[Rfam]
RNA sequence: GUGGUGUGCUCAGAGCAGGGACGGUGAAAAGAGGCCUCUCUGUUUACAACACACCCAACAGGAAUCUGGCACCAUGUAACAAGGAGCACAACACUCAUGUCCUCCCUGUGAGCAAGUGCCCUGCACGU
Numbered sequence: 001g002u003g004g005u006g007u008g009c010u011c012a013g014a015g016c017a018g019g020g021a022c023g024g025u026g027a028a029a030a031g032a033g034g035c036c037u038c039u040c041u042g043u044u045u046a047c048a049a050c051a052c053a054c055c056c057a058a059c060a061g062g063a064a065u066c067u068g069g070c071a072c073c074a075u076g077u078a079a080c081a082a083g084g085a086g087c088a089c090a091a092c093a094c095u096c097a098u099g100u101c102c103u104c105c106c107u108g109u110g111a112g113c114a115a116g117u118g119c120c121c122u123g124c125a126c127g128u
Base pairs, nucleotide, nucleotide: 003055004054005053006052007051008050013045014044015043016042017041018040019039020038021037023036024035025034069121072118075114076113077112080110081109083103084102087099088098091095
RNA: Small nucleolar RNA SNORA11